[Rfam]
RNA sequence: GGGAAGGAGGGCGAUGGAGCUCGCCACAACCGCCCUAGGCACGUCAGCACUGACCUGACCCAAGCCAAGCGGGCUGAUGGCUCCUACUAUUCU
Numbered sequence: 001g002g003g004a005a006g007g008a009g010g011g012c013g014a015u016g017g018a019g020c021u022c023g024c025c026a027c028a029a030c031c032g033c034c035c036u037a038g039g040c041a042c043g044u045c046a047g048c049a050c051u052g053a054c055c056u057g058a059c060c061c062a063a064g065c066c067a068a069g070c071g072g073g074c075u076g077a078u079g080g081c082u083c084c085u086a087c088u089a090u091u092c093u
Base pairs, nucleotide, nucleotide: 010025011024012023013022016084017083018082019081020080021079032074033073034072035071
Fluoride riboswitch aptamer (crcB RNA motif): a 93-nucleotide RNA from Leptolyngbyaceae cyanobacterium T60_A2020_046. Pairs were carried over by alignment from the consensus structure, which is taken from published work. NCBI's taxonomy places the organism under Bacteria, Bacillati, Cyanophyceae, Leptolyngbyales, Leptolyngbyaceae.